Small nucleolar RNA Z279/snoR105/snoR108: a 105-nucleotide sequence from Ziziphus jujuba. From the family's description: This family includes the plant snoRNAs known as Z279, snoR105 and snoR108. For this family Rfam cites "Experimental RNomics: identification of 140 candidates for small non-messenger RNAs in the plant Arabidopsis thaliana" (Marker et al., Curr Biol, 2002). The match comes from Rfam's covariance-model search (88 bits). Gene Ontology terms of the family: RNA processing and nucleolus. The source organism's lineage runs through Eukaryota, Streptophytina, Magnoliopsida, Gunneridae and Ziziphus jujuba.
[Rfam]
RNA sequence: GGGAUGUGAUGAGUGGUCUAUGCUCGCUAAAACUAUGCGAGAUGGGUGUCCGCUCCAAAGCCUGUUACGACAAGUGGGCACUCCCAUUCAUACCAAUCUGAUCCC
Numbered sequence: 001g002g003g004a005u006g007u008g009a010u011g012a013g014u015g016g017u018c019u020a021u022g023c024u025c026g027c028u029a030a031a032a033c034u035a036u037g038c039g040a041g042a043u044g045g046g047u048g049u050c051c052g053c054u055c056c057a058a059a060g061c062c063u064g065u066u067a068c069g070a071c072a073a074g075u076g077g078g079c080a081c082u083c084c085c086a087u088u089c090a091u092a093c094c095a096a097u098c099u100g101a102u103c104c105c
Stems, first nucleotide, its partner, number of pairs: 001105004014095004023041005044083007062076001065073001